[Rfam]
RNA sequence: UGAUGAUGCCUCCCUCGGCAACCUUGCUGUACUGAACUGAUGAAGUACAUUUGAAGCCUUUUGCAUCUGACAGCUGAGCAUGUUAUU
Numbered sequence: 001u002g003a004u005g006a007u008g009c010c011u012c013c014c015u016c017g018g019c020a021a022c023c024u025u026g027c028u029g030u031a032c033u034g035a036a037c038u039g040a041u042g043a044a045g046u047a048c049a050u051u052u053g054a055a056g057c058c059u060u061u062u063g064c065a066u067c068u069g070a071c072a073g074c075u076g077a078g079c080a081u082g083u084u085a086u087u
Stems, first nucleotide, its partner, number of pairs: 002087007

This 87-nucleotide RNA from Urocitellus parryii belongs to the Rfam family "Small nucleolar RNA MBII-202". Rfam classes the family as a C/D-box small nucleolar RNA. Taxonomically the source falls in Urocitellus (Eukaryota, Teleostomi, Rodentia, Sciuromorpha). Rfam 15.1 lists 745 matches to the family in 452 species. Gene Ontology terms of the family: RNA processing and nucleolus.